[Rfam]
RNA: c-di-AMP riboswitch aptamer (ydaO/yuaA leader)
Organism: Actinomadura sp. WAC 06369
RNA sequence: GCGGCGUGAAGGCCGAGUCCGCGCAGGUCCACGAGGGCCGCAGCGGAGCCGGGGACCCAAGUUUCUGGGGUGAAUCGGCGCGUUUCGAGCGCGCCGUAGGGCUCUUCCAUGCCCGAAUCCGUCAGCUAACCCGGUAGGCGUCAUGGGAGACAAG
Dot-bracket structure: ...........(((...(((((....................)))))((((((....((......))(((.....((((((.........))))))..((((........))))...))).........)))))).)))...............